mir-927 microRNA precursor family: an 88-nucleotide RNA from Diaphorina citri.
NCBI's taxonomy places the organism under Eukaryota, Insecta, Sternorrhyncha, Psylloidea, Diaphorina.
The match comes from Rfam's covariance-model search (64 bits).
RNA sequence: CGGCAUAUGGUCCGUUUUAGAAUUCCCACGCUUUACCGUUUUACUUUUGAUGAUCAGUAAAGCGUAAGGAUUCUAAAACGGACUGUAU
Numbered sequence: 001c002g003g004c005a006u007a008u009g010g011u012c013c014g015u016u017u018u019a020g021a022a023u024u025c026c027c028a029c030g031c032u033u034u035a036c037c038g039u040u041u042u043a044c045u046u047u048u049g050a051u052g053a054u055c056a057g058u059a060a061a062g063c064g065u066a067a068g069g070a071u072u073c074u075a076a077a078a079c080g081g082a083c084u085g086u087a088u
Stems, first nucleotide, its partner, number of pairs: 011081002014079008023070003028065007036057001